The record is a 113-nucleotide RNA from Xenopus laevis, which matches "Small nucleolar RNA SNORD89" in Rfam.
It is annotated as a C/D-box small nucleolar RNA.
snoRNA HBII-289 belongs to the family of C/D snoRNAs.
The organism belongs to Xenopus, within Eukaryota.
The literature on the family includes a 2001 paper in EMBO J by Huttenhofer et al., "RNomics: an experimental approach that identifies 201 candidates for novel, small, non-messenger RNAs in mouse".
Pairs were carried over by alignment from the consensus structure, which was predicted with RNAalifold.
The match comes from Rfam's covariance-model search (65 bits).

[Rfam]
RNA sequence: UCUGAGGAAUGAUGACACAAAAGGCCGAAUUGCAGUGCCUCCCCUGGCAGGUUUCUCUGUGUGGAAGGUGCGAUGACAAAACUCCUUGAAGCGAAUUGACAACUGACCUCAGC
Numbered sequence: 001u002c003u004g005a006g007g008a009a010u011g012a013u014g015a016c017a018c019a020a021a022a023g024g025c026c027g028a029a030u031u032g033c034a035g036u037g038c039c040u041c042c043c044c045u046g047g048c049a050g051g052u053u054u055c056u057c058u059g060u061g062u063g064g065a066a067g068g069u070g071c072g073a074u075g076a077c078a079a080a081a082c083u084c085c086u087u088g089a090a091g092c093g094a095a096u097u098g099a100c101a102a103c104u105g106a107c108c109u110c111a112g113c
Stems, first nucleotide, its partner, number of pairs: 002112006014103001024033002036098002040094002042091001045088003050071001053067002056064002072085001075082001